[Rfam]
RNA: Ribosomal protein L10 leader
Organism: Listeria monocytogenes
RNA sequence: AACAAUCAAAUAUCCUUACCGUAGACAGUUGGCGCGUUUAUCGCUUAAAUUUGCCACCCGAGGGAUUUCUUUUGAAGUGUGCGUCCGCGUGCAUUUUACAAAAACCUCUGACGUCUACGGUGUCAGAGGUUUUUUGUUGCUGAU
Numbered sequence: 001a002a003c004a005a006u007c008a009a010a011u012a013u014c015c016u017u018a019c020c021g022u023a024g025a026c027a028g029u030u031g032g033c034g035c036g037u038u039u040a041u042c043g044c045u046u047a048a049a050u051u052u053g054c055c056a057c058c059c060g061a062g063g064g065a066u067u068u069c070u071u072u073u074g075a076a077g078u079g080u081g082c083g084u085c086c087g088c089g090u091g092c093a094u095u096u097u098a099c100a101a102a103a104a105c106c107u108c109u110g111a112c113g114u115c116u117a118c119g120g121u122g123u124c125a126g127a128g129g130u131u132u133u134u135u136g137u138u139g140c141u142g143a144u
Stems, first nucleotide, its partner, number of pairs: 028058001030056004034044003105129010
Dot-bracket structure: ...........................(.(((((((.....)))........)))).)..............................................((((((((((.....))))))))))...............